The record is a 305-nucleotide sequence from Eragrostis curvula, which matches "Plant signal recognition particle RNA" in Rfam. On this family, see Batey et al., Science 2000: "Crystal structure of the ribonucleoprotein core of the signal recognition particle". It scores 248 bits against the family's covariance model.
RNA sequence: GCCGAGCUGGGUAGCGUCAGCUUGUGACCCAAGUGGGGGCAUUAAGGUGGUGUGGAUGCCAGGUGUGGUGCUUGUGCCUGGGCCUGGGGUUGCACUUUGCGGCCCGCCCGUUCCAAGUUGAGUAGUGGGCUGUGGGUGCUUUGGCGAAGGCCUUGGCGCCCCAGCACCUAGAGUGGCGGGCAAUGCGUGAGGCUGGCUUCACAGAGCAGCGAUUACCGCCCGCUUCCAACGGUGGAAGGAUAACGGGCCGCUGCGCUCUAGACCCGCUUAGGCUCAAGCAUCCUCUUUGGCAGACCACCAUCUUU
Dot-bracket structure: ((((((((((......)))))))....(((....))))))...(((((((((.(..(((((((.(.(.((((((.(((.(((.((((.((..((....((((((((.((.(((((.((((.(.((((.((((.(((((((..(((....)))..))))))))))).)(....).(((((......(((....(((......)))....)))....))))).))).)))))..)))))))....)))))))))).)).)))).))).....))).))))))).).)).)))))..)))))))))).